[Rfam]
This 145-nucleotide RNA from Glycine max belongs to the Rfam family "Small nucleolar RNA snoR136". Rfam 15.1 lists 452 matches to the family in 212 species. Lineage of the source: Eukaryota > Viridiplantae > Gunneridae > Glycine > Glycine subgen. Soja. The literature on the family includes a 2009 paper in Nucleic Acids Res by Chen and Wu, "Mining small RNA sequencing data: a new approach to identify small nucleolar RNAs in Arabidopsis".

RNA sequence: AAGGCUUCUGGUUUAUUUAAGAUUUUUGCUUUGCACUUUUUUCAUUGUGUAUGGCAAUGUUUAAUUGAAGCCGAUAUGUGUGUUCCCCUCGCUAUCCGUUGUUGCAAUUUUGAUGCUGCAUUUUGGACGUCGGGGAACUAAAUCA
Numbered sequence: 001a002a003g004g005c006u007u008c009u010g011g012u013u014u015a016u017u018u019a020a021g022a023u024u025u026u027u028g029c030u031u032u033g034c035a036c037u038u039u040u041u042u043c044a045u046u047g048u049g050u051a052u053g054g055c056a057a058u059g060u061u062u063a064a065u066u067g068a069a070g071c072c073g074a075u076a077u078g079u080g081u082g083u084u085c086c087c088c089u090c091g092c093u094a095u096c097c098g099u100u101g102u103u104g105c106a107a108u109u110u111u112g113a114u115g116c117u118g119c120a121u122u123u124u125g126g127a128c129g130u131c132g133g134g135g136a137a138c139u140a141a142a143u144c145a
Base pairs, nucleotide, nucleotide: 001075003072004071005070008067010066011065012064015062018059019058026057027056028055029054030053032051035050036049082138083137084136085135086134087133088132090129091128095127096126097125098124104116105115106114